Background:
Rfam assigns this 157-nucleotide sequence from Nisaea acidiphila to the family "FMN riboswitch aptamer (RFN element)". The family's consensus secondary structure is taken from published work. The RFN element is a highly conserved domain that is found frequently in the 5'-untranslated regions of prokaryotic mRNAs that encode for flavin mononucleotide (FMN) biosynthesis and transport proteins. This element is a metabolite-dependent riboswitch that directly binds FMN in the absence of proteins. It scores 106 bits against the family's covariance model. Rfam links the family to the GO term FMN binding.
RNA sequence: GCAUGUUCUCGGGGCGGGGUGGAAUUCCCCACCGGCGGUGACAUGGGGAGCCUCCCGGCUCGCCCUUGAAGCCCGCGAGCGCCCGGCUCUGCCGGGGUCAGCAGAUUCGGUGCGAUUCCGAAGCCGACGGUCACAGUCCGGAUGAGAGAGAACGGCA
Numbered sequence: 001g002c003a004u005g006u007u008c009u010c011g012g013g014g015c016g017g018g019g020u021g022g023a024a025u026u027c028c029c030c031a032c033c034g035g036c037g038g039u040g041a042c043a044u045g046g047g048g049a050g051c052c053u054c055c056c057g058g059c060u061c062g063c064c065c066u067u068g069a070a071g072c073c074c075g076c077g078a079g080c081g082c083c084c085g086g087c088u089c090u091g092c093c094g095g096g097g098u099c100a101g102c103a104g105a106u107u108c109g110g111u112g113c114g115a116u117u118c119c120g121a122a123g124c125c126g127a128c129g130g131u132c133a134c135a136g137u138c139c140g141g142a143u144g145a146g147a148g149a150g151a152a153c154g155g156c157a
Stems, first nucleotide, its partner, number of pairs: 004154007017029003031137002033126002035076004071124002079102002106122005128140003
Dot-bracket structure: ...(((((((......(((.......))).[[((((((................................[[))))..((....................))...(((((.......)))))]])).(((.....]]))).......)))))))...